[Rfam]
bZIP non canonical Hac1/Xbp1 intron: a 75-nucleotide RNA from Thermothelomyces thermophilus. For this family Rfam cites "Conserved RNA structures in the non-canonical Hac1/Xbp1 intron" (Hooks and Griffiths-Jones, RNA Biol, 2011). Rfam's curators write: bZIP intron RNA is a non-canonical intron that was first reported in HAC1 gene in yeast and XBP1 gene in Metazoa. By type it is a small RNA. Taxonomically the source falls in Thermothelomyces thermophilus (Eukaryota, saccharomyceta, Sordariomycetes, Sordariomycetidae).
RNA sequence: GUACUUCCCCCGACGCGACACAACAUCCUGCAGAGAUGUUGUGCCCGGACCUGCAGUGUCGGUCGGCGGAAGCAC
Numbered sequence: 001g002u003a004c005u006u007c008c009c010c011c012g013a014c015g016c017g018a019c020a021c022a023a024c025a026u027c028c029u030g031c032a033g034a035g036a037u038g039u040u041g042u043g044c045c046c047g048g049a050c051c052u053g054c055a056g057u058g059u060c061g062g063u064c065g066g067c068g069g070a071a072g073c074a075c
Stems, first nucleotide, its partner, number of pairs: 001075002004072004010066005022040006048060003